[Rfam]
RNA: Mammalian CPEB3 ribozyme
RNA sequence: ACUGCCAUAAUGGCCAUAGCAGAUGUGUUCAUGUUGUGGCCCUGUCAGGAUCUAACAAAUCUGCCAAUUCUGCU
Dot-bracket structure: ...........[[[[..((((((.(((.......)))]]]]....((((.(......).)))).....))))))
Numbered sequence: 001a002c003u004g005c006c007a008u009a010a011u012g013g014c015c016a017u018a019g020c021a022g023a024u025g026u027g028u029u030c031a032u033g034u035u036g037u038g039g040c041c042c043u044g045u046c047a048g049g050a051u052c053u054a055a056c057a058a059a060u061c062u063g064c065c066a067a068u069u070c071u072g073c074u
Stems, first nucleotide, its partner, number of pairs: 012041004018074006025037003046063004051058001